[Rfam]
RNA sequence: UGCCGAGGAAUUCCUCGGUAGUUAGCUGCCGCCGAUUUACUAAAAACUUCGGCAGUUAACUGCCAAAGAGCAU
Dot-bracket structure: ...........((.(.(((((((((((((((..................))))))))))))))).).))....
MIR2629 microRNA precursor family: a 73-nucleotide RNA sequence from Medicago truncatula. A search with the family's covariance model found it, with a score of 64 bits. Lineage of the source: Eukaryota > Streptophyta > Mesangiospermae > Pentapetalae > Medicago.